Shown here is a 131-nucleotide RNA sequence, a member of the family "SAH (S-adenosyl-L-homocysteine) riboswitch aptamer". Pairs were carried over by alignment from the consensus structure, which is taken from published work. The sequence is in the family's curated seed alignment.
[Rfam]
RNA sequence: CCUCCCACCGAGGAGCGCUGCAACCCCAUUAUUAAAUCGGCACCUGCGGUCGGGUUUCGACCACAGGUGCCGAUUUAGUCGCGGGGCCAGGCUCGGUGAGGAGGUAUCUUCAACGACGGCGCUCACUCUGA
Numbered sequence: 001c002c003u004c005c006c007a008c009c010g011a012g013g014a015g016c017g018c019u020g021c022a023a024c025c026c027c028a029u030u031a032u033u034a035a036a037u038c039g040g041c042a043c044c045u046g047c048g049g050u051c052g053g054g055u056u057u058c059g060a061c062c063a064c065a066g067g068u069g070c071c072g073a074u075u076u077a078g079u080c081g082c083g084g085g086g087c088c089a090g091g092c093u094c095g096g097u098g099a100g101g102a103g104g105u106a107u108c109u110u111c112a113a114c115g116a117c118g119g120c121g122c123u124c125a126c127u128c129u130g131a
Base pairs, nucleotide, nucleotide: 006098007097008096009095010094011093024086025085026084027083029081